[Rfam]
RNA: tRNA
RNA sequence: GCUGGAAUAGCGCAGUCGGUAGCGCAACUGAUUCGUAAUCAGUAGGUCGAGGGUUCAAGUCCCUUUUCCAGCU
Numbered sequence: 001g002c003u004g005g006a007a008u009a010g011c012g013c014a015g016u017c018g019g020u021a022g023c024g025c026a027a028c029u030g031a032u033u034c035g036u037a038a039u040c041a042g043u044a045g046g047u048c049g050a051g052g053g054u055u056c057a058a059g060u061c062c063c064u065u066u067u068c069c070a071g072c073u
Base pairs, nucleotide, nucleotide: 001072002071003070004069005068006067007066010025011024012023013022027043028042029041030040031039049065050064051063052062053061